[Rfam]
RNA: Ribosomal protein L10 leader
RNA sequence: GACAAGAAAAUAACCUAUCCGAAGACAGUAGGGGCUAAAUGCUUAAAUUUCCUACCGAGGUAAAUUUUUGCGAAAUUAAUUUUGCAUUUAUACCUCCUGACUGUCUACAGGAGGUUUUUUCAAUUAUAAA
Numbered sequence: 001g002a003c004a005a006g007a008a009a010a011u012a013a014c015c016u017a018u019c020c021g022a023a024g025a026c027a028g029u030a031g032g033g034g035c036u037a038a039a040u041g042c043u044u045a046a047a048u049u050u051c052c053u054a055c056c057g058a059g060g061u062a063a064a065u066u067u068u069u070g071c072g073a074a075a076u077u078a079a080u081u082u083u084g085c086a087u088u089u090a091u092a093c094c095u096c097c098u099g100a101c102u103g104u105c106u107a108c109a110g111g112a113g114g115u116u117u118u119u120u121c122a123a124u125u126a127u128a129a130a
Stems, first nucleotide, its partner, number of pairs: 028055006034042002092115008